[Rfam]
A member of the RNA family "small nucleolar RNA snoR134" from Vitis rotundifolia, 141 nucleotides long. NCBI's taxonomy places the organism under Eukaryota, Tracheophyta, Magnoliopsida, Vitales, Vitis.

RNA sequence: CUGCACGACGCACCCCGGGCUUUUCCGAAAAUCUCAUGAAGAAAAAAGCCCCAAUGCUCAUGCUAAAAGGUCAGCCGUUAAGUGUUGCAGUUCAGCCCCAAAUUCCCACGGCUGAUCUGUGUCAAAUCAACGGCGACAUUC
Numbered sequence: 001c002u003g004c005a006c007g008a009c010g011c012a013c014c015c016c017g018g019g020c021u022u023u024u025c026c027g028a029a030a031a032u033c034u035c036a037u038g039a040a041g042a043a044a045a046a047a048g049c050c051c052c053a054a055u056g057c058u059c060a061u062g063c064u065a066a067a068a069g070g071u072c073a074g075c076c077g078u079u080a081a082g083u084g085u086u087g088c089a090g091u092u093c094a095g096c097c098c099c100a101a102a103u104u105c106c107c108a109c110g111g112c113u114g115a116u117c118u119g120u121g122u123c124a125a126a127u128c129a130a131c132g133g134c135g136a137c138a139u140u141c
Stems, first nucleotide, its partner, number of pairs: 003063003007059002010057002017051005022045002024042002074134006083124002086121005095112003